[Rfam]
RNA: S15-Flavobacteria ribosomal protein leader
RNA sequence: UAUCUUUGCGCCGUGUUAGAGUAACACAUACAUAAAAAUCAUUUAAACAAUAUUGGCAUG
Numbered sequence: 001u002a003u004c005u006u007u008g009c010g011c012c013g014u015g016u017u018a019g020a021g022u023a024a025c026a027c028a029u030a031c032a033u034a035a036a037a038a039u040c041a042u043u044u045a046a047a048c049a050a051u052a053u054u055g056g057c058a059u060g
Base pairs, nucleotide, nucleotide: 014026015025016024017023018022